[Rfam]
RNA sequence: UAAGCAACUCGACAGGGAGGGUGAGAACCCUCGAACAGGGUUCGAGUCGAGCGGAGCGAGACAACGCCGGAGCUAGCGACGGCGGCCCCGAAGGGGCGCGAGUAAUCCCUCCCUGACCGCCA
Numbered sequence: 001u002a003a004g005c006a007a008c009u010c011g012a013c014a015g016g017g018a019g020g021g022u023g024a025g026a027a028c029c030c031u032c033g034a035a036c037a038g039g040g041u042u043c044g045a046g047u048c049g050a051g052c053g054g055a056g057c058g059a060g061a062c063a064a065c066g067c068c069g070g071a072g073c074u075a076g077c078g079a080c081g082g083c084g085g086c087c088c089c090g091a092a093g094g095g096g097c098g099c100g101a102g103u104a105a106u107c108c109c110u111c112c113c114u115g116a117c118c119g120c121c122a
Base pairs, nucleotide, nucleotide: 015113016112017111018110019109020108021107022105032098033097036095041092042091043090044088048058049057065084066083067082068081069080
RtT RNA: a 122-nucleotide RNA from Marinobacterium lutimaris.
Lineage of the source: Bacteria > Gammaproteobacteria > Oceanospirillales > Oceanospirillaceae > Marinobacterium.
A reference for the family is Bosl and Kersten (1991), "A novel RNA product of the tyrT operon of Escherichia coli", Nucleic Acids Res.
Rfam's curators write: This family represents a bacterial cis-regulatory element known as RtT RNA. The exact function of RtT is unknown although it is thought that it may be involved in changing the cellular response in relation to amino acid starvation.